Rfam assigns this 101-nucleotide RNA sequence from Populus alba to the family "MIR474 microRNA precursor family". A reference for the family is Lu et al. (2005), "Novel and mechanical stress-responsive MicroRNAs in Populus trichocarpa that are absent from Arabidopsis", Plant Cell. The base pairs follow the family's consensus structure, which was predicted with WAR. The family has 11 seed sequences and 69 matches in Rfam 15.1. Rfam links the family to the GO terms RISC complex and miRNA-mediated post-transcriptional gene silencing. NCBI's taxonomy places the organism under Eukaryota, Viridiplantae, Pentapetalae, fabids, Populus.
[Rfam]
RNA sequence: UCCAAAAGUUGUUAGGUCAUACUUGACAGCAAGACCCAACGCUGUUAGGUCAUGCUUGGCCAUCAGACUUAAGGUUAUUAGGUCUGGCUCAAUCAAAGAAA
Numbered sequence: 001u002c003c004a005a006a007a008g009u010u011g012u013u014a015g016g017u018c019a020u021a022c023u024u025g026a027c028a029g030c031a032a033g034a035c036c037c038a039a040c041g042c043u044g045u046u047a048g049g050u051c052a053u054g055c056u057u058g059g060c061c062a063u064c065a066g067a068c069u070u071a072a073g074g075u076u077a078u079u080a081g082g083u084c085u086g087g088c089u090c091a092a093u094c095a096a097a098g099a100a101a
Stems, first nucleotide, its partner, number of pairs: 001099002009097001011093003015089005021083006028076003033051004038046003056071001058069002